Annotation: The family of this 98-nucleotide RNA sequence from Maribacter sp. MMG018 is "SAM-I/IV (S-adenosyl methionine) riboswitch aptamer". The organism belongs to Maribacter, within Bacteria. The family's consensus secondary structure is taken from published work. The family is grouped with related families in Rfam's "SAM clan".
RNA sequence: AAAUAAUAUCAAGAAUCUCAGAAAAGGAGAUAGCAACCUGCAAUAACAAGCAAGGUGCUAAAUAGAUAGGCCAAUUCGUUGGAACAAAUGUUAACCCA
Number, nucleotide and partner (000 for none) at each position: 001a000002a000003a000004u000005a000006a000007u068008a067009u066010c065011a000012a000013g000014a000015a031016u030017c029018u028019c027020a000021g000022a000023a000024a000025a000026g000027g019028a018029g017030a016031u015032a059033g058034c057035a000036a000037c055038c054039u053040g051041c050042a000043a000044u094045a000046a092047c000048a000049a000050g041051c040052a000053a039054g038055g037056u000057g034058c033059u032060a000061a000062a000063u000064a000065g010066a009067u008068a007069g000070g000071c082072c081073a080074a079075u000076u000077c000078g000079u074080u073081g072082g071083a000084a000085c000086a000087a000088a000089u000090g000091u000092u046093a000094a044095c000096c000097c000098a000